RNA sequence: AAUUGAAAAAGGCAAAUUCAUCGAAAGGUGGAGACGCAAAGCUAAAGGGACUAAAGUCAGAUGACCAUGUCAGCCAGUUACCGAU
Numbered sequence: 001a002a003u004u005g006a007a008a009a010a011g012g013c014a015a016a017u018u019c020a021u022c023g024a025a026a027g028g029u030g031g032a033g034a035c036g037c038a039a040a041g042c043u044a045a046a047g048g049g050a051c052u053a054a055a056g057u058c059a060g061a062u063g064a065c066c067a068u069g070u071c072a073g074c075c076a077g078u079u080a081c082c083g084a085u
Stems, first nucleotide, its partner, number of pairs: 012037002017032006040079004047075002049071003056065003